[Rfam]
RNA sequence: GUGUAAGAUACAAUAAUUAUGUCCAUGUAACUUUAAAAAAGUCGUAAUCUGAUUAUAUCAUCGUGUCUGUUUAUAUGCAAUAUAAAAGAACCUGUUAAAACUACCCAGGUUCUUUUUUGA
Numbered sequence: 001g002u003g004u005a006a007g008a009u010a011c012a013a014u015a016a017u018u019a020u021g022u023c024c025a026u027g028u029a030a031c032u033u034u035a036a037a038a039a040a041g042u043c044g045u046a047a048u049c050u051g052a053u054u055a056u057a058u059c060a061u062c063g064u065g066u067c068u069g070u071u072u073a074u075a076u077g078c079a080a081u082a083u084a085a086a087a088g089a090a091c092c093u094g095u096u097a098a099a100a101c102u103a104c105c106c107a108g109g110u111u112c113u114u115u116u117u118u119g120a
Base pairs, nucleotide, nucleotide: 036072037071038070040066043063044062084116085115086114087113088112089111090110091109092108093107094106

Record summary:
This 120-nucleotide RNA sequence from Paenibacillus sp. yr247 belongs to the Rfam family "Bacillus sRNA ncr1015". The family's consensus secondary structure is taken from published work. On this family, see Irnov et al., Nucleic Acids Res 2010: "Identification of regulatory RNAs in Bacillus subtilis". The family's RNA type in Rfam is small RNA.